RNA sequence: CCGUGCUAAGCGGGGAGGUAGCGGUGCCCUGUACUCGCAAUCCGCUAUAGCGAGGCCGAAUUCCCGCCCGAGGUAAUGCGGCUUUAAGGUCUGCCAUAAGGAAUUGGUGUUGACACCCGGGUCCUGCGCAACAGGAAACUGUGAACCCUGUCAGGUCCGGAAGGAAGCAGCAGUAAGCAGUCUCUCCUGUGUGCCGCGGGGAAGCCUGGGUCGAGCCAUGAACUUAUGUAACGCUUAGAUCCGUAUUAUCGACGGUGGGUGCACGG
Numbered sequence: 001c002c003g004u005g006c007u008a009a010g011c012g013g014g015g016a017g018g019u020a021g022c023g024g025u026g027c028c029c030u031g032u033a034c035u036c037g038c039a040a041u042c043c044g045c046u047a048u049a050g051c052g053a054g055g056c057c058g059a060a061u062u063c064c065c066g067c068c069c070g071a072g073g074u075a076a077u078g079c080g081g082c083u084u085u086a087a088g089g090u091c092u093g094c095c096a097u098a099a100g101g102a103a104u105u106g107g108u109g110u111u112g113a114c115a116c117c118c119g120g121g122u123c124c125u126g127c128g129c130a131a132c133a134g135g136a137a138a139c140u141g142u143g144a145a146c147c148c149u150g151u152c153a154g155g156u157c158c159g160g161a162a163g164g165a166a167g168c169a170g171c172a173g174u175a176a177g178c179a180g181u182c183u184c185u186c187c188u189g190u191g192u193g194c195c196g197c198g199g200g201g202a203a204g205c206c207u208g209g210g211u212c213g214a215g216c217c218a219u220g221a222a223c224u225u226a227u228g229u230a231a232c233g234c235u236u237a238g239a240u241c242c243g244u245a246u247u248a249u250c251g252a253c254g255g256u257g258g259g260u261g262c263a264c265g266g
Base pairs, nucleotide, nucleotide: 001266002265003264004263005262006261010056011055012030013029014028015027017025019023034054035053036052037051038050063259064258065257066256067255068254072250073249074248075247076246079243080242081241083239084238085237086236087235088234092230093229096227097226098225099224100223104220106217107216108215115211116210117209118208119207120206121205122204123200124199125198126197127196128195129191130190132189133188134187135186136185138181139180140179141178142177148173149172150171151170156165157164158163
The family of this 266-nucleotide sequence from Terribacillus sp. AE2B 122 is "Bacterial large signal recognition particle RNA".
It is annotated as a non-coding RNA gene.
The family's consensus secondary structure is taken from published work.
A search with the family's covariance model found it, with a score of 234 bits.
Lineage of the source: Bacteria > Bacilli > Caryophanales > Bacillaceae > Terribacillus.